[Rfam]
RNA sequence: GGCAACGAGCGUCAGCGACAAGCCCUGGCUUGCUGACCAGCAACCCUCUCCGCGAGCGGGGUGCUCCAGGUGACAGCCCGGCAGGUCCGUCCGGACCCGCAAGCGCGUGGC
Numbered sequence: 001g002g003c004a005a006c007g008a009g010c011g012u013c014a015g016c017g018a019c020a021a022g023c024c025c026u027g028g029c030u031u032g033c034u035g036a037c038c039a040g041c042a043a044c045c046c047u048c049u050c051c052g053c054g055a056g057c058g059g060g061g062u063g064c065u066c067c068a069g070g071u072g073a074c075a076g077c078c079c080g081g082c083a084g085g086u087c088c089g090u091c092c093g094g095a096c097c098c099g100c101a102a103g104c105g106c107g108u109g110g111c
Base pairs, nucleotide, nucleotide: 001078002077003076009038011037012036013035014034015033016032021030022029039065040064041063044061045060046059048056049055081100082099084097085096086095087094088093
Dot-bracket structure: (((.....(.((((((....((......)).)))))))(((..(((.((.....))..))).)))..........)))..((.(((((....))))).))...........
The family of this 111-nucleotide RNA sequence from Quadrisphaera granulorum is "SAM (S-adenosyl methionine) riboswitch aptamer".
The family is grouped with related families in Rfam's "SAM clan".
From the family's description: SAM-IV is a mRNA element that regulates gene expression via direct sensing of S-adenosylmethionine (SAM or AdoMet). SAM-IV riboswitches share conserved nucleotide positions with the previously described SAM-I riboswitches sequence analysis and molecular recognition experiments suggest that SAM-I and SAM-IV riboswitches share similar ligand binding sites, but have different scaffolds.
On this family, see Weinberg et al., RNA 2008: "The aptamer core of SAM-IV riboswitches mimics the ligand-binding site of SAM-I riboswitches".